[Rfam]
This 47-nucleotide sequence from Zestomonas carbonaria belongs to the Rfam family "Guanidine-II riboswitch aptamer (mini-ykkC)".
The match comes from Rfam's covariance-model search (44 bits).
The organism belongs to Zestomonas, within Bacteria.
About the family: Simpler in structure and has fewer highly conserved nucleotide positions than the ykkC-yxkD leader.
Pairs were carried over by alignment from the consensus structure, which is taken from published work.

RNA sequence: AGCCGGGGACGACCCCGGCUCGCUUGCGGAUUCAGGGGACGACCCCG
Numbered sequence: 001a002g003c004c005g006g007g008g009a010c011g012a013c014c015c016c017g018g019c020u021c022g023c024u025u026g027c028g029g030a031u032u033c034a035g036g037g038g039a040c041g042a043c044c045c046c047g
Stems, first nucleotide, its partner, number of pairs: 001020008035046004